[Rfam]
RNA sequence: UGUUAAAAAUUACAUCAAUUUGUACCAUAAAAAAUUGAUGUGGCUGAUGGAAUAACUAAACAGUGACAAAUGAUGUGUCAUUUGCACCUUAUGUUGAUAUACAGGGCCCAAUAUUUAACAGUAGAAAUGGAAGAAUUUUUAAUA
Numbered sequence: 001u002g003u004u005a006a007a008a009a010u011u012a013c014a015u016c017a018a019u020u021u022g023u024a025c026c027a028u029a030a031a032a033a034a035u036u037g038a039u040g041u042g043g044c045u046g047a048u049g050g051a052a053u054a055a056c057u058a059a060a061c062a063g064u065g066a067c068a069a070a071u072g073a074u075g076u077g078u079c080a081u082u083u084g085c086a087c088c089u090u091a092u093g094u095u096g097a098u099a100u101a102c103a104g105g106g107c108c109c110a111a112u113a114u115u116u117a118a119c120a121g122u123a124g125a126a127a128u129g130g131a132a133g134a135a136u137u138u139u140u141a142a143u144a
Stems, first nucleotide, its partner, number of pairs: 002143010013133001015131002018128004023123003028118001030116003
Overview
MIR7502 microRNA precursor family: a 144-nucleotide sequence from Gossypium anomalum. The source organism's lineage runs through Eukaryota, Euphyllophyta, eudicotyledons, rosids and Gossypium. Rfam links the family to the GO terms miRNA-mediated post-transcriptional gene silencing and RISC complex.